Annotation: Metazoan signal recognition particle RNA: a 298-nucleotide sequence from Diceros bicornis. On this family, see Regalia et al., Nucleic Acids Res 2002: "Prediction of signal recognition particle RNA genes". Rfam classes the family as a non-coding RNA gene. It scores 202 bits against the family's covariance model. About the family: The signal recognition particle (SRP) is a universally conserved ribonucleoprotein.
RNA sequence: GCCGGGCGCGGUGGCGCGCGCCUGUAAUCCCAGCUUCCCGGGAGGCUGAGGUCGGCGGAUCGUGGGUGUCCGGGGGUUCGGAGCUACGGCGCUGUGUAGAGCGGGCGUCCGCACUGGGCCUGGCACCAACAUGGGGCACCCGGGGGAGCCCGGGGGUACCAGGUUGUCUAAGGAGGGGGGGACCCGGCCCAGGCCGGACACGGAGCAGGUCAAACUCCCCGUGCUGGGCGGCGGUGGGACCGCGCCUGCGAGCAAUGCCUGCAGUUCCGCCCGGACAUCCGACGAGACCCGGUCUCUU
Number, nucleotide and partner (000 for none) at each position: 001g046002c045003c044004g023005g022006g021007c020008g019009c018010g017011g000012u000013g000014g000015c000016g000017c010018g009019c008020g007021c006022c005023u004024g000025u000026a000027a000028u043029c042030c041031c000032a000033g000034c000035u000036u000037c000038c000039c000040g000041g030042g029043a028044g003045g002046c001047u000048g296049a295050g294051g293052u292053c291054g290055g289056c000057g000058g000059a000060u285061c284062g283063u282064g000065g280066g278067u277068g276069u275070c274071c273072g272073g271074g270075g000076g000077u000078u000079c269080g268081g267082a266083g265084c264085u263086a000087c261088g259089g258090c257091g256092c000093u254094g253095u252096g000097u250098a000099g000100a000101g249102c248103g247104g246105g245106c244107g243108u242109c238110c237111g000112c236113a235114c234115u233116g232117g000118g229119c228120c227121u226122g225123g224124c223125a222126c221127c166128a165129a164130c163131a000132u161133g160134g159135g000136g157137c156138a000139c154140c153141c152142g151143g150144g149145g000146g000147a000148g000149c144150c143151c142152g141153g140154g139155g000156g137157u136158a000159c134160c133161a132162g000163g130164u129165u128166g127167u173168c172169u000170a000171a000172g168173g167174a000175g219176g218177g217178g216179g215180g000181g000182a000183c000184c000185c000186g211187g210188c209189c208190c000191a000192g000193g000194c203195c202196g201197g000198a000199c000200a000201c196202g195203g194204a000205g000206c000207a000208g189209g188210u187211c186212a000213a000214a000215c179216u178217c177218c176219c175220c000221g126222u125223g124224c123225u122226g121227g120228g119229c118230g000231g000232c116233g115234g114235u113236g112237g110238g109239a000240c000241c000242g108243c107244g106245c105246c104247u103248g102249c101250g097251a000252g095253c094254a093255a000256u091257g090258c089259c088260u000261g087262c000263a085264g084265u083266u082267c081268c080269g079270c074271c073272c072273g071274g070275a069276c068277a067278u066279c000280c065281g000282a063283c062284g061285a060286g000287a000288c000289c055290c054291g053292g052293u051294c050295u049296c048297u000298u000